[Rfam]
Annotation: The family of this 45-nucleotide RNA sequence from Granulicella mallensis is "Acido-Lenti-1 RNA".

RNA sequence: CCCAGGACUUCACCCUGGGCUGGAAUAUGCCGCCCCUUCGGGGCU
Numbered sequence: 001c002c003c004a005g006g007a008c009u010u011c012a013c014c015c016u017g018g019g020c021u022g023g024a025a026u027a028u029g030c031c032g033c034c035c036c037u038u039c040g041g042g043g044c045u
Base pairs, nucleotide, nucleotide: 001019002018003017004016005015006014032044033043034042035041036040

Description: The family's RNA type in Rfam is small RNA. The family's consensus secondary structure is taken from published work.